c-di-AMP riboswitch aptamer (ydaO/yuaA leader): a 217-nucleotide sequence from Arthrobacter terricola.
Pairs were carried over by alignment from the consensus structure.
The organism belongs to Arthrobacter, within Bacteria.

RNA sequence: CCAGCGGAUCAGCUGGAUUAGUCCAUUCACUGGCAGAAGCGGGGGAACCAUCAGCGGUUGCCGAAAUGCAGCCUUGGGGUGAAGUCCGCAGCGGAGAGCAAAUCGCGGGACCCUUGAUCGGGCUGCCCGCGUUCCGUGCCUCUCUACGCGGACCGGGUCUUCGAACUCUCUGACCCGAAUCCGACAGCUAACUUCGCAGGCUUGUCAGAGAGGAAAA
Numbered sequence: 001c002c003a004g005c006g007g008a009u010c011a012g013c014u015g016g017a018u019u020a021g022u023c024c025a026u027u028c029a030c031u032g033g034c035a036g037a038a039g040c041g042g043g044g045g046a047a048c049c050a051u052c053a054g055c056g057g058u059u060g061c062c063g064a065a066a067u068g069c070a071g072c073c074u075u076g077g078g079g080u081g082a083a084g085u086c087c088g089c090a091g092c093g094g095a096g097a098g099c100a101a102a103u104c105g106c107g108g109g110a111c112c113c114u115u116g117a118u119c120g121g122g123c124u125g126c127c128c129g130c131g132u133u134c135c136g137u138g139c140c141u142c143u144c145u146a147c148g149c150g151g152a153c154c155g156g157g158u159c160u161u162c163g164a165a166c167u168c169u170c171u172g173a174c175c176c177g178a179a180u181c182c183g184a185c186a187g188c189u190a191a192c193u194u195c196g197c198a199g200g201c202u203u204g205u206c207a208g209a210g211a212g213g214a215a216a217a
Base pairs, nucleotide, nucleotide: 011202012201013200014199018038019037039197040196041195042194043193044192049076050075077182078181079180085152086151087150088149155176156175157174158173